[Rfam]
RNA: Nuclear RNase P
Organism: Sclerurus mexicanus
RNA sequence: UCCGGGGGAAGCUCACCGCCGAGGCCAGCACGGGGUGCGCGUCACCCUCGGCCGCCUCGGGGAAGGUCUGAGGGAAGGGCCCGCGCGGCCCCAGCAGGGCCCCGCCCGGCCGGGCGGGUGAGCCACCAGCGAGGGGCGGCGGCGCGGCGCCGGCGCUGACACACAGCGCGGGCAGGAGACGCCGCGGGCCGCGGCCCCGGCCGAUGCUCGGGCCCCGCGCCGCUCUGAGACAGACUCACGGCCGGCCACUGAGUCCAAUGGGUGGGGUGGGGCAGCGCCCCAUAACCCAAUUCAGACUACUCUCCCCCGGA
Numbered sequence: 001u002c003c004g005g006g007g008g009a010a011g012c013u014c015a016c017c018g019c020c021g022a023g024g025c026c027a028g029c030a031c032g033g034g035g036u037g038c039g040c041g042u043c044a045c046c047c048u049c050g051g052c053c054g055c056c057u058c059g060g061g062g063a064a065g066g067u068c069u070g071a072g073g074g075a076a077g078g079g080c081c082c083g084c085g086c087g088g089c090c091c092c093a094g095c096a097g098g099g100c101c102c103c104g105c106c107c108g109g110c111c112g113g114g115c116g117g118g119u120g121a122g123c124c125a126c127c128a129g130c131g132a133g134g135g136g137c138g139g140c141g142g143c144g145c146g147g148c149g150c151c152g153g154c155g156c157u158g159a160c161a162c163a164c165a166g167c168g169c170g171g172g173c174a175g176g177a178g179a180c181g182c183c184g185c186g187g188g189c190c191g192c193g194g195c196c197c198c199g200g201c202c203g204a205u206g207c208u209c210g211g212g213c214c215c216c217g218c219g220c221c222g223c224u225c226u227g228a229g230a231c232a233g234a235c236u237c238a239c240g241g242c243c244g245g246c247c248a249c250u251g252a253g254u255c256c257a258a259u260g261g262g263u264g265g266g267g268u269g270g271g272g273c274a275g276c277g278c279c280c281c282a283u284a285a286c287c288c289a290a291u292u293c294a295g296a297c298u299a300c301u302c303u304c305c306c307c308c309g310g311a
Stems, first nucleotide, its partner, number of pairs: 001311004007305003012266006020059005033047005068295005078243004087101005102117006118239005124233001138224010267283007
Dot-bracket structure: ((((..(((..((((((..(((((........(((((.....))))).......)))))........[[[[[.....((((.....(((((.....)))))((((((....))))))(((((.(.............((((((((((...................................................................))))))))))........).))))))))).................))))))(((((((...))))))).......]]]]].......)))..))))